[Rfam]
RNA sequence: UGAAAGUGUCUUCCCGAUCUGCUGUUGAUUGUUGCGUAGAGAACAUCAAUCAUCGCAGCUCGGAAGGCACUUUUCCUAUUCCGGCACACCCCGCCCCACCGACCACGUCCACGGAUUCAG
Numbered sequence: 001u002g003a004a005a006g007u008g009u010c011u012u013c014c015c016g017a018u019c020u021g022c023u024g025u026u027g028a029u030u031g032u033u034g035c036g037u038a039g040a041g042a043a044c045a046u047c048a049a050u051c052a053u054c055g056c057a058g059c060u061c062g063g064a065a066g067g068c069a070c071u072u073u074u075c076c077u078a079u080u081c082c083g084g085c086a087c088a089c090c091c092c093g094c095c096c097c098a099c100c101g102a103c104c105a106c107g108u109c110c111a112c113g114g115a116u117u118c119a120g
Stems, first nucleotide, its partner, number of pairs: 002074012015062003019058004024054001026052004031047001033045002101118002106113002
The family of this 120-nucleotide sequence from Nocardia macrotermitis is "Actinobacteria sRNA Ms_IGR-7". A search with the family's covariance model found it, with a score of 82 bits. It is annotated as a small RNA. The source organism's lineage runs through Bacteria, Bacillati, Mycobacteriales, Nocardiaceae and Nocardia.